[Rfam]
RNA sequence: AGAACACACAUUAAUUAUCCCUAGGGCCAUGGGAUAAACAAAAAACCUACAACAACAAGUUAGCACACCCUAGAAUGGUUCUAGCACGAUUACUAACAUAUGGAUUUGAUAUCAUUUGAUGGAAAAAAAAC
Numbered sequence: 001a002g003a004a005c006a007c008a009c010a011u012u013a014a015u016u017a018u019c020c021c022u023a024g025g026g027c028c029a030u031g032g033g034a035u036a037a038a039c040a041a042a043a044a045a046c047c048u049a050c051a052a053c054a055a056c057a058a059g060u061u062a063g064c065a066c067a068c069c070c071u072a073g074a075a076u077g078g079u080u081c082u083a084g085c086a087c088g089a090u091u092a093c094u095a096a097c098a099u100a101u102g103g104a105u106u107u108g109a110u111a112u113c114a115u116u117u118g119a120u121g122g123a124a125a126a127a128a129a130a131c
Base pairs, nucleotide, nucleotide: 009121010120011119012118013117014116016114022108023107024106025105027103028102029101030100031099033097048086054079056077057076060073061072062071063070
Description: MIR845_2 microRNA precursor family: a 131-nucleotide RNA sequence from Vitis vinifera. The source organism's lineage runs through Eukaryota, Streptophytina, Magnoliopsida, Vitales and Vitis. Rfam links the family to the GO terms miRNA-mediated post-transcriptional gene silencing and RISC complex. For this family Rfam cites "The grapevine genome sequence suggests ancestral hexaploidization in major angiosperm phyla" (Jaillon et al., Nature, 2007). The base pairs follow the family's consensus structure, which was predicted with WAR. The family has 2 seed sequences and 180 matches in Rfam 15.1. A search with the family's covariance model found it, with a score of 122 bits.